[Rfam]
RNA sequence: CCCUCCGAAAUAUCCCUCAGGAUCGCCGAAGCUCGCAGCAGUUUCAUCGGGUAGAGCGAAUGAUUAGAGGCAUCGGGGCUAUUUUUAGCUUCAACCUAUUCUCAAACUGCAAACCGGUGACAUGUGGUCAGCGAUUUCUUGAUUGAAUCGUUGAUGCCGUAAGGCUGAAUGCAUGAGUUUCGAGUGGGCCGUUUUUGGUAAGCAGAACUGGCGAUGCGGGAUGAACCGAGAGUCGGGUUAAAGUGCCUAAGUCGCGGCCAACGGAUACCAUAAAAGGAGUUGGUAAAUUAUGACAGUGAGGCUGUGGUCCUAUAAGUAGAUAUCAGCUAAGAAGUGUGCAACAACUUACUUACCGAAUUUACUGGCCCUGAAAAUGGAUGGCGCUUAGCCGCGCACUGAUACCCGACCGUAGAUGCGAGAAAUGUGUCAUCUAUGGGUAGGAGGGUGCUAUGGUUGCGUAAAAGCGUCCACGUGAGUGGGUGUGGAGCAGCCAUAGGUACAGAU
Numbered sequence: 001c002c003c004u005c006c007g008a009a010a011u012a013u014c015c016c017u018c019a020g021g022a023u024c025g026c027c028g029a030a031g032c033u034c035g036c037a038g039c040a041g042u043u044u045c046a047u048c049g050g051g052u053a054g055a056g057c058g059a060a061u062g063a064u065u066a067g068a069g070g071c072a073u074c075g076g077g078g079c080u081a082u083u084u085u086u087a088g089c090u091u092c093a094a095c096c097u098a099u100u101c102u103c104a105a106a107c108u109g110c111a112a113a114c115c116g117g118u119g120a121c122a123u124g125u126g127g128u129c130a131g132c133g134a135u136u137u138c139u140u141g142a143u144u145g146a147a148u149c150g151u152u153g154a155u156g157c158c159g160u161a162a163g164g165c166u167g168a169a170u171g172c173a174u175g176a177g178u179u180u181c182g183a184g185u186g187g188g189c190c191g192u193u194u195u196u197g198g199u200a201a202g203c204a205g206a207a208c209u210g211g212c213g214a215u216g217c218g219g220g221a222u223g224a225a226c227c228g229a230g231a232g233u234c235g236g237g238u239u240a241a242a243g244u245g246c247c248u249a250a251g252u253c254g255c256g257g258c259c260a261a262c263g264g265a266u267a268c269c270a271u272a273a274a275a276g277g278a279g280u281u282g283g284u285a286a287a288u289u290a291u292g293a294c295a296g297u298g299a300g301g302c303u304g305u306g307g308u309c310c311u312a313u314a315a316g317u318a319g320a321u322a323u324c325a326g327c328u329a330a331g332a333a334g335u336g337u338g339c340a341a342c343a344a345c346u347u348a349c350u351u352a353c354c355g356a357a358u359u360u361a362c363u364g365g366c367c368c369u370g371a372a373a374a375u376g377g378a379u380g381g382c383g384c385u386u387a388g389c390c391g392c393g394c395a396c397u398g399a400u401a402c403c404c405g406a407c408c409g410u411a412g413a414u415g416c417g418a419g420a421a422a423u424g425u426g427u428c429a430u431c432u433a434u435g436g437g438u439a440g441g442a443g444g445g446u447g448c449u450a451u452g453g454u455u456g457c458g459u460a461a462a463a464g465c466g467u468c469c470a471c472g473u474g475a476g477u478g479g480g481u482g483u484g485g486a487g488c489a490g491c492c493a494u495a496g497g498u499a500c501a502g503a504u
Base pairs, nucleotide, nucleotide: 001445002444003443004442005441006440012023013022014021015020027182028181029180030179031178032177033176042122044120045119046118047117048116049115054110055108056107061104062103063102066099068097069096070095073094075092076091077090078089080087124172125171126170128168129167130166131165132164188212189211190210191209193207194206195205196204197203217228218227219226232407233406234405235404236403238401242397243396244395251394253393256390257389258388275369276368277367279366280365281364282363283362284361285360286359287358288357296353297352298351299350300349302326303325304324307321308320309319327331332347336345337344408435409434410433411432412431413430414429415428446499448496449495450494451493452492453491454490455489456488457487464483465482469478470477471476

The record is a 504-nucleotide part of an RNA from Thelohanellus kitauei, which matches "Eukaryotic large subunit ribosomal RNA" in Rfam. Lineage of the source: Eukaryota > Eumetazoa > Bivalvulida > Myxobolidae > Thelohanellus. Its family is annotated with structural constituent of ribosome and ribosome in the Gene Ontology. The match comes from Rfam's covariance-model search (2442 bits).